Shown here is a 365-nucleotide sequence from Putridiphycobacter roseus, a member of the family "Bacterial RNase P class A".
[Rfam]
RNA sequence: AAAGCAAACCACUUUGUCGCUUUACCUUUGGGUAAAGAGGAAAGUCUGAGCAGCAAAGGGAAUCAUACUUCUUAACGGGAAGGGUCCAGUUUACUGGAUACAGCAAGUGCCGCAGAAAAUUAAACUACCUUGGCCUAGCCAAGGAAAAGGUGAAAAGGUGAGGUAAGAGCUCACCGCUUUCAAAGUGAUUUGAAAGGCAUGGUAAACCUUAUGAGCUGAAACAUCAUGUAAACCAAGGCUUGAAACUACCCGGUUAAUCUUGGAGGGUGGAUGGAUUGAGCCUUAGGGUGACCUAAGGCCUAGAUAAAUGACAAAGGAUUUUAGCAAUAAAAUUACAGAACUCGGCUUAUCGGUUUGCUUUUUCU
Numbered sequence: 001a002a003a004g005c006a007a008a009c010c011a012c013u014u015u016g017u018c019g020c021u022u023u024a025c026c027u028u029u030g031g032g033u034a035a036a037g038a039g040g041a042a043a044g045u046c047u048g049a050g051c052a053g054c055a056a057a058g059g060g061a062a063u064c065a066u067a068c069u070u071c072u073u074a075a076c077g078g079g080a081a082g083g084g085u086c087c088a089g090u091u092u093a094c095u096g097g098a099u100a101c102a103g104c105a106a107g108u109g110c111c112g113c114a115g116a117a118a119a120u121u122a123a124a125c126u127a128c129c130u131u132g133g134c135c136u137a138g139c140c141a142a143g144g145a146a147a148a149g150g151u152g153a154a155a156a157g158g159u160g161a162g163g164u165a166a167g168a169g170c171u172c173a174c175c176g177c178u179u180u181c182a183a184a185g186u187g188a189u190u191u192g193a194a195a196g197g198c199a200u201g202g203u204a205a206a207c208c209u210u211a212u213g214a215g216c217u218g219a220a221a222c223a224u225c226a227u228g229u230a231a232a233c234c235a236a237g238g239c240u241u242g243a244a245a246c247u248a249c250c251c252g253g254u255u256a257a258u259c260u261u262g263g264a265g266g267g268u269g270g271a272u273g274g275a276u277u278g279a280g281c282c283u284u285a286g287g288g289u290g291a292c293c294u295a296a297g298g299c300c301u302a303g304a305u306a307a308a309u310g311a312c313a314a315a316g317g318a319u320u321u322u323a324g325c326a327a328u329a330a331a332a333u334u335a336c337a338g339a340a341c342u343c344g345g346c347u348u349a350u351c352g353g354u355u356u357g358c359u360u361u362u363u364c365u
Base pairs, nucleotide, nucleotide: 001361002360003359004358005357006356007355008354009353010352011350012316013315014314015313016312017311018310020037021036022035023034024033025032026031042348043347044346046345047344048343049342050341051218052217053216054215058251059250060249063214064213065212066211067210068082069081070080071079072078083101084099085098086097087096088095089094102209103208107207108206109203110202111201125149126148128144129143130142131141132140133139134138157175158174159173160172161171162170176198177196178195179194180193181192182191183190184189222273223272224271225270233263234262235261236260237259243255244254246252280299281298282297283296284295285294286293287292
A search with the family's covariance model found it, with a score of 263 bits. The family is grouped with related families in Rfam's "RNaseP clan".